[Rfam]
RNA sequence: CACAGUGCGGCGGGAGAGCGUGGUGGGUCAGGGGCGGGGAACCGUUCGGGACCGCGCCAUCGCCGAAGGAGCAAACCCUCCCCGGGAACCUCUCAGGCACCCGUACCGCCGCACCAGG
Numbered sequence: 001c002a003c004a005g006u007g008c009g010g011c012g013g014g015a016g017a018g019c020g021u022g023g024u025g026g027g028u029c030a031g032g033g034g035c036g037g038g039g040a041a042c043c044g045u046u047c048g049g050g051a052c053c054g055c056g057c058c059a060u061c062g063c064c065g066a067a068g069g070a071g072c073a074a075a076c077c078c079u080c081c082c083c084g085g086g087a088a089c090c091u092c093u094c095a096g097g098c099a100c101c102c103g104u105a106c107c108g109c110c111g112c113a114c115c116a117g118g
Base pairs, nucleotide, nucleotide: 006113007112008111009110010109011108012107013106020060021059022058023057024056025055062098063097064096065094066093069092070091071090076084

A member of the RNA family "Glycine riboswitch aptamer" from Kocuria rhizophila, 118 nucleotides long. Its family is annotated with glycine biosynthetic process in the Gene Ontology. The organism belongs to Kocuria rhizophila, within Bacteria. The match comes from Rfam's covariance-model search (58 bits).